[Rfam]
RNA sequence: AUAUAUGUUCGUAGAGUAGCGAACAGGAUAAUCAAAGAAAUACUCGUUAAGA
Numbered sequence: 001a002u003a004u005a006u007g008u009u010c011g012u013a014g015a016g017u018a019g020c021g022a023a024c025a026g027g028a029u030a031a032u033c034a035a036a037g038a039a040a041u042a043c044u045c046g047u048u049a050a051g052a
Base pairs, nucleotide, nucleotide: 006025007024008023009022010021011020014045015044016043017042

Notes:
A member of the RNA family "6A RNA", 52 nucleotides long. Pairs were carried over by alignment from the consensus structure, which is taken from published work. The family's RNA type in Rfam is small RNA.